[Rfam]
RNA sequence: AGUGUAGAGGUGGCUAAGAUGCUGUGAUCUGUCUCAGGUAAUUUAUCCACCUCUCACAAU
Number, nucleotide and partner (000 for none) at each position: 001a000002g057003u056004g055005u000006a054007g053008a052009g051010g050011u049012g048013g047014c000015u045016a044017a043018g000019a000020u000021g039022c038023u037024g000025u000026g000027a000028u000029c000030u000031g000032u000033c000034u000035c000036a000037g023038g022039u021040a000041a000042u000043u017044u016045a015046u000047c013048c012049a011050c010051c009052u008053c007054u006055c004056a003057c002058a000059a000060u000

The record is a 60-nucleotide sequence from Monodelphis domestica, which matches "mir-7398 microRNA precursor family" in Rfam.
The base pairs follow the family's consensus structure, which was predicted with RNAalifold.
The family has 23 seed sequences and 132 matches in Rfam 15.1.
The sequence is in the family's curated seed alignment.
Lineage of the source: Eukaryota > Deuterostomia > Mammalia > Didelphinae > Monodelphis.
Rfam links the family to the GO terms RISC complex and miRNA-mediated post-transcriptional gene silencing.